[Rfam]
RNA sequence: GGACAUAACCGAAUAUUUGCCAAUAUAGGUUUGAAUAUGAAGGCUCAAACGUUUCUACCGCACACCGGAAAAGUUGCGACUAUUGGUGGGAUAGCUUAAGGG
Numbered sequence: 001g002g003a004c005a006u007a008a009c010c011g012a013a014u015a016u017u018u019g020c021c022a023a024u025a026u027a028g029g030u031u032u033g034a035a036u037a038u039g040a041a042g043g044c045u046c047a048a049a050c051g052u053u054u055c056u057a058c059c060g061c062a063c064a065c066c067g068g069a070a071a072a073g074u075u076g077c078g079a080c081u082a083u084u085g086g087u088g089g090g091a092u093a094g095c096u097u098a099a100g101g102g
Stems, first nucleotide, its partner, number of pairs: 018088008029050006059078004063073001

This 102-nucleotide RNA sequence from Faecalibacterium sp. CAG:1138 belongs to the Rfam family "Purine riboswitch aptamer". The family is grouped with related families in Rfam's "Purine riboswitches". Pairs were carried over by alignment from the consensus structure, which is taken from published work.